ALIL pseudoknot: a 117-nucleotide sequence from Noviherbaspirillum pedocola. Pairs were carried over by alignment from the consensus structure, which is taken from published work. Gene Ontology term of the family: positive regulation of translational frameshifting.
[Rfam]
RNA sequence: UGCUUUUUUCGCCCAGGCGGAGCUCGACCGCCGCUUCAAAUCGUGAAGGCUUUCAUCGACGCCCAUCGAGAUAGCCUCGGGGUCGAGCCAAUCUGCCAGGUGCUGCAGGUUGCCCCA
Numbered sequence: 001u002g003c004u005u006u007u008u009u010c011g012c013c014c015a016g017g018c019g020g021a022g023c024u025c026g027a028c029c030g031c032c033g034c035u036u037c038a039a040a041u042c043g044u045g046a047a048g049g050c051u052u053u054c055a056u057c058g059a060c061g062c063c064c065a066u067c068g069a070g071a072u073a074g075c076c077u078c079g080g081g082g083u084c085g086a087g088c089c090a091a092u093c094u095g096c097c098a099g100g101u102g103c104u105g106c107a108g109g110u111u112g113c114c115c116c117a
Stems, first nucleotide, its partner, number of pairs: 016032005079116004089112002092109005
Description
The organism belongs to Noviherbaspirillum, within Bacteria.